[Rfam]
RNA sequence: GAUCUCAGGGCGGGGUGGAAGUCCCCACCGGCGGUAAUCGCAACGAUGGUUGAACCCUAUCGGGUUGUAUCUGCAUCGAUGUGUAGCCCGCGGGCGCCUGUCUGAGCCGUUGGGCUUCGGACAGGGACAGCAGACUCGGUGUGAUUCCGGGGCCGACGGUUAGAGUCCGGUUAUGAGAGAAA
Numbered sequence: 001g002a003u004c005u006c007a008g009g010g011c012g013g014g015g016u017g018g019a020a021g022u023c024c025c026c027a028c029c030g031g032c033g034g035u036a037a038u039c040g041c042a043a044c045g046a047u048g049g050u051u052g053a054a055c056c057c058u059a060u061c062g063g064g065u066u067g068u069a070u071c072u073g074c075a076u077c078g079a080u081g082u083g084u085a086g087c088c089c090g091c092g093g094g095c096g097c098c099u100g101u102c103u104g105a106g107c108c109g110u111u112g113g114g115c116u117u118c119g120g121a122c123a124g125g126g127a128c129a130g131c132a133g134a135c136u137c138g139g140u141g142u143g144a145u146u147c148c149g150g151g152g153c154c155g156a157c158g159g160u161u162a163g164a165g166u167c168c169g170g171u172u173a174u175g176a177g178a179g180a181a182a
Stems, first nucleotide, its partner, number of pairs: 003180004013025003027166002029155002031091004094131002135151005157169003
The record is a 182-nucleotide RNA sequence from Pseudomaricurvus hydrocarbonicus, which matches "FMN riboswitch aptamer (RFN element)" in Rfam. The source organism's lineage runs through Bacteria, Pseudomonadati, Pseudomonadota, Cellvibrionales and Pseudomaricurvus. Rfam describes the family as follows. The RFN element is a highly conserved domain that is found frequently in the 5'-untranslated regions of prokaryotic mRNAs that encode for flavin mononucleotide (FMN) biosynthesis and transport proteins. A search with the family's covariance model found it, with a score of 76 bits.